[Rfam]
RNA sequence: CUAGCACUUUCACAGGUCCCCCCUGAUACAGUGGGGCUAGGAUUUGGUAGCUGGUGCUGAGAGAAAACCCUUGACUGCGUCCAUGCCCUGGGAAUAUACCAGUGGCGCCUGUCAGUCAGAGGGACAGAG
Numbered sequence: 001c002u003a004g005c006a007c008u009u010u011c012a013c014a015g016g017u018c019c020c021c022c023c024u025g026a027u028a029c030a031g032u033g034g035g036g037c038u039a040g041g042a043u044u045u046g047g048u049a050g051c052u053g054g055u056g057c058u059g060a061g062a063g064a065a066a067a068c069c070c071u072u073g074a075c076u077g078c079g080u081c082c083a084u085g086c087c088c089u090g091g092g093a094a095u096a097u098a099c100c101a102g103u104g105g106c107g108c109c110u111g112u113c114a115g116u117c118a119g120a121g122g123g124a125c126a127g128a129g
Stems, first nucleotide, its partner, number of pairs: 003058006013046003017042003022036003068123003071119004076114002079112002084107004088102004
A member of the RNA family "Small nucleolar RNA SNORA30/SNORA37 family" from Tupaia belangeri, 129 nucleotides long.
NCBI's taxonomy places the organism under Eukaryota, Opisthokonta, Deuterostomia, Euarchontoglires, Tupaia belangeri.
The members of this family belong to the H/ACA class of snoRNAs that guide the sites of modification of uridines to pseudouridines. This family includes human ACA30 (SNORA30), ACA37 (SNORA37) and the mouse homolog MBI-26.